[Rfam]
RNA sequence: CUCUGGAGAGCGGCGUUCCCGUGAGGAACGCCCACCGAUGGGGCAACGCGACUGCAGCAGUGCGUUACCGAUCACCGUAACAACGCCCGGCAGGUCCGGCGCUGACGGGGUCGGCGAUGCCGGCGGCGCGGCAAUCUCUCAGGUACAAGGACAGGG
Numbered sequence: 001c002u003c004u005g006g007a008g009a010g011c012g013g014c015g016u017u018c019c020c021g022u023g024a025g026g027a028a029c030g031c032c033c034a035c036c037g038a039u040g041g042g043g044c045a046a047c048g049c050g051a052c053u054g055c056a057g058c059a060g061u062g063c064g065u066u067a068c069c070g071a072u073c074a075c076c077g078u079a080a081c082a083a084c085g086c087c088c089g090g091c092a093g094g095u096c097c098g099g100c101g102c103u104g105a106c107g108g109g110g111u112c113g114g115c116g117a118u119g120c121c122g123g124c125g126g127c128g129c130g131g132c133a134a135u136c137u138c139u140c141a142g143g144u145a146c147a148a149g150g151a152c153a154g155g156g
Base pairs, nucleotide, nucleotide: 001156002155003154004153005152012032013031014030015029016028017027018026019025034144035143036142037140038139041138042137043136047131

Shown here is a 156-nucleotide RNA from Rhodocyclus tenuis, a member of the family "Glycine riboswitch aptamer".